[Rfam]
RNA sequence: AAAGGAUCCCAUGACUGGCGGCAGUGGAAUUAACCACAGGGGAGUGGGAUCAAUAGGGAAUGCCGACCGCCUGGGCAAAAUAA
Numbered sequence: 001a002a003a004g005g006a007u008c009c010c011a012u013g014a015c016u017g018g019c020g021g022c023a024g025u026g027g028a029a030u031u032a033a034c035c036a037c038a039g040g041g042g043a044g045u046g047g048g049a050u051c052a053a054u055a056g057g058g059a060a061u062g063c064c065g066a067c068c069g070c071c072u073g074g075g076c077a078a079a080a081u082a083a
Base pairs, nucleotide, nucleotide: 005051006050007049008048009047010046011045012044015041016040017071018070019069020068021067024037025036026035027034061077062076063075064074
A member of the RNA family "ZMP/ZTP riboswitch aptamer (pfl RNA motif)" from Thermovenabulum gondwanense, 83 nucleotides long. It scores 66 bits against the family's covariance model. For this family Rfam cites "Recognition of the bacterial alarmone ZMP through long-distance association of two RNA subdomains" (Jones and Ferre-D'Amare, Nat Struct Mol Biol, 2015). Taxonomically the source falls in Thermovenabulum (Bacteria, Bacillota, Clostridia, Thermosediminibacteraceae).